[Rfam]
RNA sequence: CUCUAGUUUAGCAAAUAGACUAGGGCAAAGGAG
Numbered sequence: 001c002u003c004u005a006g007u008u009u010a011g012c013a014a015a016u017a018g019a020c021u022a023g024g025g026c027a028a029a030g031g032a033g
Base pairs, nucleotide, nucleotide: 001025002024003023004022005021006020007019008018009017010016
Shown here is a 33-nucleotide RNA from Atopobacter phocae, a member of the family "L31-Firmicutes ribosomal protein leader". NCBI's taxonomy places the organism under Bacteria, Bacilli, Carnobacteriaceae, Atopobacter, Atopobacter phocae. A reference for the family is Eckert and Weinberg (2020), "Discovery of 20 novel ribosomal leader candidates in bacteria and archaea", BMC Microbiol. Rfam's curators put it in the seed alignment.